This 123-nucleotide sequence from Microthlaspi erraticum belongs to the Rfam family "MIR168 microRNA precursor family".

RNA sequence: GUUACGGUGGUCUCCGAUUAGCUUGGUGCAGCUCGGGAAUUGAUUGGUUGACCCGCCAUCGUUGGCUUGUGAGCACGAAUCAGUUCCCGUGUAGCACCAAGAGAAUCCGAGGCCCAGGUGAAA
Numbered sequence: 001g002u003u004a005c006g007g008u009g010g011u012c013u014c015c016g017a018u019u020a021g022c023u024u025g026g027u028g029c030a031g032c033u034c035g036g037g038a039a040u041u042g043a044u045u046g047g048u049u050g051a052c053c054c055g056c057c058a059u060c061g062u063u064g065g066c067u068u069g070u071g072a073g074c075a076c077g078a079a080u081c082a083g084u085u086c087c088c089g090u091g092u093a094g095c096a097c098c099a100a101g102a103g104a105a106u107c108c109g110a111g112g113c114c115c116a117g118g119u120g121a122a123a
Base pairs, nucleotide, nucleotide: 013110014109017106018105019104023100024099025098026097027096028095029094031092032091034089035088036087037086038085040083041082